mir-132 microRNA precursor family: a 79-nucleotide sequence from Ophiophagus hannah. Its family is annotated with RISC complex and miRNA-mediated post-transcriptional gene silencing in the Gene Ontology.
RNA sequence: CUCCAGGGCAACCGUGGCUUUAGAUUGUUACUGUGUGGAUGUGGGCUGGUAACAGUCUACAGCCAUGGUUGCCCGGACU
Numbered sequence: 001c002u003c004c005a006g007g008g009c010a011a012c013c014g015u016g017g018c019u020u021u022a023g024a025u026u027g028u029u030a031c032u033g034u035g036u037g038g039a040u041g042u043g044g045g046c047u048g049g050u051a052a053c054a055g056u057c058u059a060c061a062g063c064c065a066u067g068g069u070u071g072c073c074c075g076g077a078c079u
Base pairs, nucleotide, nucleotide: 012068013067015065016064017063018062023057024056025055026054027053028052029051030050031049032048
Dot-bracket structure: ...........((.((((....((((((((((...............))))))))))....)))).))...........